Description:
Rfam assigns this 99-nucleotide RNA from Gossypium anomalum to the family "mir-166 microRNA precursor family". From the family's description: This family represents the plant microRNA (miRNA) precursor mir-166. Lineage of the source: Eukaryota > Embryophyta > Tracheophyta > Spermatophyta > Gossypium.

RNA sequence: UUUGAGAGGAAUGUUGGCUGGCUCGAUGCGACAGCUUUGAGAUUGUAAAGUGUGAUCAAAGUAGAAGGUAUCAUCGGACCAGGCUUCAUUCCCCUCAAA
Numbered sequence: 001u002u003u004g005a006g007a008g009g010a011a012u013g014u015u016g017g018c019u020g021g022c023u024c025g026a027u028g029c030g031a032c033a034g035c036u037u038u039g040a041g042a043u044u045g046u047a048a049a050g051u052g053u054g055a056u057c058a059a060a061g062u063a064g065a066a067g068g069u070a071u072c073a074u075c076g077g078a079c080c081a082g083g084c085u086u087c088a089u090u091c092c093c094c095u096c097a098a099a
Stems, first nucleotide, its partner, number of pairs: 001099006008092006016084001018082004024076003